[Rfam]
RNA sequence: AGCUCAGUGAUUACAGCCAAAUUUGUUGGCAAUAUACGCUAUUCUGAAGAAAAUUUUCAUUUUCUCUGGCUGACAACAAGAAAUAUGAGAGCU
Numbered sequence: 001a002g003c004u005c006a007g008u009g010a011u012u013a014c015a016g017c018c019a020a021a022u023u024u025g026u027u028g029g030c031a032a033u034a035u036a037c038g039c040u041a042u043u044c045u046g047a048a049g050a051a052a053a054u055u056u057u058c059a060u061u062u063u064c065u066c067u068g069g070c071u072g073a074c075a076a077c078a079a080g081a082a083a084u085a086u087g088a089g090a091g092c093u
Base pairs, nucleotide, nucleotide: 001093002092003091004090005089
RNA: Small nucleolar RNA U54